[Rfam]
RNA: U2 spliceosomal RNA
RNA sequence: AUUGCUUCUUGGCCUUUUGGCUAAGAUCAAGUGUAGUACCUGUUCUUAUCAGUUUAAUAUCUGAUACUUCCUCUAUCCAAGGACAAUAUAUUAAAUGGAGUUUUGGAAGUAGGAGAUAGAAUAGAGGCUUGCGGCAUCCACUCCAUGCAUGGGCCUGGUAUUGCAGCACUUCCAGGAACAGUGCACCAAAA
Numbered sequence: 001a002u003u004g005c006u007u008c009u010u011g012g013c014c015u016u017u018u019g020g021c022u023a024a025g026a027u028c029a030a031g032u033g034u035a036g037u038a039c040c041u042g043u044u045c046u047u048a049u050c051a052g053u054u055u056a057a058u059a060u061c062u063g064a065u066a067c068u069u070c071c072u073c074u075a076u077c078c079a080a081g082g083a084c085a086a087u088a089u090a091u092u093a094a095a096u097g098g099a100g101u102u103u104u105g106g107a108a109g110u111a112g113g114a115g116a117u118a119g120a121a122u123a124g125a126g127g128c129u130u131g132c133g134g135c136a137u138c139c140a141c142u143c144c145a146u147g148c149a150u151g152g153g154c155c156u157g158g159u160a161u162u163g164c165a166g167c168a169c170u171u172c173c174a175g176g177a178a179c180a181g182u183g184c185a186c187c188a189a190a191a
Stems, first nucleotide, its partner, number of pairs: 007026003011022004047066006069083004112144004119137001124135001127132001147184004152179001154176005